[Rfam]
RNA: Burkholderia RNA 7 (anti-hemB)
RNA sequence: CCCCCGCUUUUCCUCCCUGAGCGGGGCCUUGAUGUGUGACAGCAAAAGGCUUUCUUCCCCGGCCCUGCGCCGGGGUUUUUGCC
Numbered sequence: 001c002c003c004c005c006g007c008u009u010u011u012c013c014u015c016c017c018u019g020a021g022c023g024g025g026g027c028c029u030u031g032a033u034g035u036g037u038g039a040c041a042g043c044a045a046a047a048g049g050c051u052u053u054c055u056u057c058c059c060c061g062g063c064c065c066u067g068c069g070c071c072g073g074g075g076u077u078u079u080u081g082c083c
Stems, first nucleotide, its partner, number of pairs: 003025006027049004033044003057075007